[Rfam]
RNA sequence: AAAGCAACUUUAAAAGACCAAUAUCAGUUGGUAAUUCUGGGCUAUUUUUGUUUGUCUCGGAAUUUCAAUUGAUAUCCGUCAUUUGGUUGCC
Numbered sequence: 001a002a003a004g005c006a007a008c009u010u011u012a013a014a015a016g017a018c019c020a021a022u023a024u025c026a027g028u029u030g031g032u033a034a035u036u037c038u039g040g041g042c043u044a045u046u047u048u049u050g051u052u053u054g055u056c057u058c059g060g061a062a063u064u065u066c067a068a069u070u071g072a073u074a075u076c077c078g079u080c081a082u083u084u085g086g087u088u089g090c091c
Stems, first nucleotide, its partner, number of pairs: 013083002016080003021075011034063008
Shown here is a 91-nucleotide RNA from Pseudolycoriella hygida, a member of the family "mir-283 microRNA precursor family". The base pairs follow the family's consensus structure, which was predicted with WAR. A reference for the family is Skalsky et al. (2010), "Identification of microRNAs expressed in two mosquito vectors, Aedes albopictus and Culex quinquefasciatus", BMC Genomics.